[Rfam]
Source information:
The record is a 71-nucleotide sequence from Yasminevirus saudimassiliense, which matches "tRNA" in Rfam. The match comes from Rfam's covariance-model search (64 bits). The family's consensus secondary structure is taken from published work.

RNA sequence: GGUCGCAUAGUUCAAGGGUAGAAUAGAAGCUUGUCGAGCUUUUGGUCCGAGUUCGAGUCUCGGUGCGACCG
Number, nucleotide and partner (000 for none) at each position: 001g070002g069003u068004c067005g066006c065007a064008u000009a000010g024011u023012u022013c021014a000015a000016g000017g000018g000019u000020a000021g013022a012023a011024u010025a000026g042027a041028a040029g039030c038031u000032u000033g000034u000035c000036g000037a000038g030039c029040u028041u027042u026043u000044g000045g000046u000047c063048c062049g061050a060051g059052u000053u000054c000055g000056a000057g000058u000059c051060u050061c049062g048063g047064u007065g006066c005067g004068a003069c002070c001071g000
Transfer RNA (tRNA) molecules are approximately 80 nucleotides in length. Their secondary structure includes four short double-helical elements and three loops (D, anti-codon, and T loops).